The record is a 79-nucleotide RNA sequence from Flavobacterium sp. A45, which matches "Flavo-1 RNA" in Rfam. The match comes from Rfam's covariance-model search (71 bits). The source organism's lineage runs through Bacteria, Pseudomonadati, Flavobacteriales, Flavobacteriaceae and Flavobacterium.
RNA sequence: CUCUAGCCCCGAUAGCAGUGAAAAUCCUUUGUGGCUGGGGUUCAGCCUACAAAGAUUGCAACGGAUAGCGGGACGAUAC
Numbered sequence: 001c002u003c004u005a006g007c008c009c010c011g012a013u014a015g016c017a018g019u020g021a022a023a024a025u026c027c028u029u030u031g032u033g034g035c036u037g038g039g040g041u042u043c044a045g046c047c048u049a050c051a052a053a054g055a056u057u058g059c060a061a062c063g064g065a066u067a068g069c070g071g072g073a074c075g076a077u078a079c
Base pairs, nucleotide, nucleotide: 009071010070011069013067014066018062019061023057024056025055026054029052030051031050032049033048035045036044037043